Rfam assigns this 151-nucleotide RNA sequence from Shimazuella alba to the family "FMN riboswitch aptamer (RFN element)".
Taxonomically the source falls in Shimazuella (Bacteria, Bacillati, Bacillota, Caryophanales).
RNA sequence: AUUGUCCUUCGGGGUAGGGUGAGAUUCCCAACCGACGGUGAUGUGUCGAUCAGACACUAGCCCGUGACCCACAGAAAUGAUUAUAUAUUUCUGUGGUUGAUUUGGUGAAAUUCCAAAGCCGACAGUAUAGUCUGGAUGGGAGAAGGAUAGA
Numbered sequence: 001a002u003u004g005u006c007c008u009u010c011g012g013g014g015u016a017g018g019g020u021g022a023g024a025u026u027c028c029c030a031a032c033c034g035a036c037g038g039u040g041a042u043g044u045g046u047c048g049a050u051c052a053g054a055c056a057c058u059a060g061c062c063c064g065u066g067a068c069c070c071a072c073a074g075a076a077a078u079g080a081u082u083a084u085a086u087a088u089u090u091c092u093g094u095g096g097u098u099g100a101u102u103u104g105g106u107g108a109a110a111u112u113c114c115a116a117a118g119c120c121g122a123c124a125g126u127a128u129a130g131u132c133u134g135g136a137u138g139g140g141a142g143a144a145g146g147a148u149a150g151a
Stems, first nucleotide, its partner, number of pairs: 003149008017029003031131002033121002035065004060119002069096006101117005123134003